[Rfam]
RNA sequence: UGGAGAGCGAGCAUCACUGGUGUGGGCCUUGGGCUUCAAACCCAAUGGGUGUUUAGGUGUUCUAAGCACCGCAAAGUUCGAUUCUUUGGCUCUCUU
Numbered sequence: 001u002g003g004a005g006a007g008c009g010a011g012c013a014u015c016a017c018u019g020g021u022g023u024g025g026g027c028c029u030u031g032g033g034c035u036u037c038a039a040a041c042c043c044a045a046u047g048g049g050u051g052u053u054u055a056g057g058u059g060u061u062c063u064a065a066g067c068a069c070c071g072c073a074a075a076g077u078u079c080g081a082u083u084c085u086u087u088g089g090c091u092c093u094c095u096u
Stems, first nucleotide, its partner, number of pairs: 002095007014025004029045005048070007073087004
RNA: Selenocysteine transfer RNA
Organism: Helicobacter bizzozeronii